RNA sequence: CAAAUCAUAUGACAACGACAGAGAGCACGCUUGUAUACAUCCAUGCCCUUGCAUGAAUGGCAACAAGCGUGCUCUCUCUCAUUGUCAAUUGACA
Numbered sequence: 001c002a003a004a005u006c007a008u009a010u011g012a013c014a015a016c017g018a019c020a021g022a023g024a025g026c027a028c029g030c031u032u033g034u035a036u037a038c039a040u041c042c043a044u045g046c047c048c049u050u051g052c053a054u055g056a057a058u059g060g061c062a063a064c065a066a067g068c069g070u071g072c073u074c075u076c077u078c079u080c081a082u083u084g085u086c087a088a089u090u091g092a093c094a
Base pairs, nucleotide, nucleotide: 010087011086012085013084014083017080020077021076023074025072026071027070028069029068030067031066032065033064034063
Dot-bracket structure: .........(((((..(..((.(.((((((((((............................)))))))))).).))..)..))))).......